[Rfam]
RNA sequence: UUACCUCUCCUUGGGGAGAGGUCGAAAUCGCAUGGCGAUUUCGGGGGGC
Numbered sequence: 001u002u003a004c005c006u007c008u009c010c011u012u013g014g015g016g017a018g019a020g021g022u023c024g025a026a027a028u029c030g031c032a033u034g035g036c037g038a039u040u041u042c043g044g045g046g047g048g049c
Stems, first nucleotide, its partner, number of pairs: 004021007024042008